Overview: This 80-nucleotide sequence belongs to the Rfam family "Clostridiales-2 RNA".
[Rfam]
RNA sequence: UUAACAUGGGGAAUGCAGAGGGGAUUCCCCUCGCCGGUUCAGAGGGGGUGCUCAGGAGCGUAAGCUCCGUCGAAGGGGGA
Numbered sequence: 001u002u003a004a005c006a007u008g009g010g011g012a013a014u015g016c017a018g019a020g021g022g023g024a025u026u027c028c029c030c031u032c033g034c035c036g037g038u039u040c041a042g043a044g045g046g047g048g049u050g051c052u053c054a055g056g057a058g059c060g061u062a063a064g065c066u067c068c069g070u071c072g073a074a075g076g077g078g079g080a
Stems, first nucleotide, its partner, number of pairs: 015034002018032002020029003055068005

The family's RNA type in Rfam is small RNA. Pairs were carried over by alignment from the consensus structure, which is taken from published work.